[Rfam]
RNA sequence: AGCCAAUGAUGAAUUGCUCUAAAUUCUGACACCUCGUAUGAGAACUGCAUAGUGCAGUCUGAUUAUAUUGCGAAACUGAGGCUU
Numbered sequence: 001a002g003c004c005a006a007u008g009a010u011g012a013a014u015u016g017c018u019c020u021a022a023a024u025u026c027u028g029a030c031a032c033c034u035c036g037u038a039u040g041a042g043a044a045c046u047g048c049a050u051a052g053u054g055c056a057g058u059c060u061g062a063u064u065a066u067a068u069u070g071c072g073a074a075a076c077u078g079a080g081g082c083u084u
Stems, first nucleotide, its partner, number of pairs: 001083004044058005
A member of the RNA family "Small nucleolar RNA SNORD60" from Cavia porcellus, 84 nucleotides long. The organism belongs to Cavia, within Eukaryota. The family's consensus secondary structure was predicted with PFOLD. Rfam 15.1 lists 825 matches to the family in 373 species. For this family Rfam cites "Purified box C/D snoRNPs are able to reproduce site-specific 2'-O-methylation of target RNA in vitro" (Galardi et al., Mol Cell Biol, 2002). Gene Ontology terms of the family: nucleolus and RNA processing. By type it is a C/D-box small nucleolar RNA.